The family of this 92-nucleotide sequence from Anopheles sinensis is "mir-282 microRNA precursor family". A reference for the family is Li et al. (2009), "Direct sequencing and expression analysis of a large number of miRNAs in Aedes aegypti and a multi-species survey of novel mosquito miRNAs", BMC Genomics. Rfam 15.1 lists 136 matches to the family in 128 species. Its family is annotated with miRNA-mediated post-transcriptional gene silencing and RISC complex in the Gene Ontology.
[Rfam]
RNA sequence: UAGCAGAUCUAAUCUAGCCUCUCCUAGGCUUUGUCUGUAUCAGUCAAUGCUACCCAGACAUAGCCUAACAGAGGUUAGGUGAAAUCUGACAG
Numbered sequence: 001u002a003g004c005a006g007a008u009c010u011a012a013u014c015u016a017g018c019c020u021c022u023c024c025u026a027g028g029c030u031u032u033g034u035c036u037g038u039a040u041c042a043g044u045c046a047a048u049g050c051u052a053c054c055c056a057g058a059c060a061u062a063g064c065c066u067a068a069c070a071g072a073g074g075u076u077a078g079g080u081g082a083a084a085u086c087u088g089a090c091a092g
Base pairs, nucleotide, nucleotide: 012080013079014078015077016076017075018074019073020072027065028064029063030062032060033059034058035057036056